[Rfam]
RNA sequence: AAGUUUUUUCGAACCAUUUGAAUCACUACUUGAUUCAAAUGGUUCGAAAAAA
Numbered sequence: 001a002a003g004u005u006u007u008u009u010c011g012a013a014c015c016a017u018u019u020g021a022a023u024c025a026c027u028a029c030u031u032g033a034u035u036c037a038a039a040u041g042g043u044u045c046g047a048a049a050a051a052a
Base pairs, nucleotide, nucleotide: 007049008048009047010046011045012044013043014042015041016040017039018038019037020036021035022034023033024032025031